[Rfam]
RNA sequence: GUCGGUAGAGUAUCUGGUGGAAUAGGCAUUUCGGACCCGGGGGGCAGUACCCCGGCGCCUCCACCACCAGCGGCGAAGCGGUUACCUUGAAGGGUCCGCCGCUGCUGAUGGGGGCGAAAUAGGAUCGACGAGUGCAGUAAAGGCCUGGUUGCCGAUCGGUAUGAGCAGACCGCUAAAGGCUCAUUCACACAAGUGCCAACGAUAACGAGGCGCUCGCAAUUGCCGCGUAA
Numbered sequence: 001g002u003c004g005g006u007a008g009a010g011u012a013u014c015u016g017g018u019g020g021a022a023u024a025g026g027c028a029u030u031u032c033g034g035a036c037c038c039g040g041g042g043g044g045c046a047g048u049a050c051c052c053c054g055g056c057g058c059c060u061c062c063a064c065c066a067c068c069a070g071c072g073g074c075g076a077a078g079c080g081g082u083u084a085c086c087u088u089g090a091a092g093g094g095u096c097c098g099c100c101g102c103u104g105c106u107g108a109u110g111g112g113g114g115c116g117a118a119a120u121a122g123g124a125u126c127g128a129c130g131a132g133u134g135c136a137g138u139a140a141a142g143g144c145c146u147g148g149u150u151g152c153c154g155a156u157c158g159g160u161a162u163g164a165g166c167a168g169a170c171c172g173c174u175a176a177a178g179g180c181u182c183a184u185u186c187a188c189a190c191a192a193g194u195g196c197c198a199a200c201g202a203u204a205a206c207g208a209g210g211c212g213c214u215c216g217c218a219a220u221u222g223c224c225g226c227g228u229a230a
Stems, first nucleotide, its partner, number of pairs: 001156005016145003027134003031131003037055005056116007157172004

Description: This 230-nucleotide RNA sequence from Sphingomonas cremea belongs to the Rfam family "permuted transfer-messenger RNA". Rfam describes the family as follows. Bacterial tmRNA, also known as 10Sa RNA or SsrA, is named for its dual tRNA and mRNA-like properties. Lineage of the source: Bacteria > Pseudomonadati > Sphingomonadales > Sphingomonadaceae > Sphingomonas. Gene Ontology term of the family: RNA catabolic process.